[Rfam]
RNA sequence: AUCGUUCAUCUGCUGCUAUCAGCAGACGGAAGUAGGGAAAAAUAUCCCGAAGGAACGCGCC
Numbered sequence: 001a002u003c004g005u006u007c008a009u010c011u012g013c014u015g016c017u018a019u020c021a022g023c024a025g026a027c028g029g030a031a032g033u034a035g036g037g038a039a040a041a042a043u044a045u046c047c048c049g050a051a052g053g054a055a056c057g058c059g060c061c
Base pairs, nucleotide, nucleotide: 003057004056005055006054007053009026010025011024012023013022014021015020029058035048036047037046
RNA: Glutamine riboswitch aptamer (glnA leader)
Organism: Crocosphaera watsonii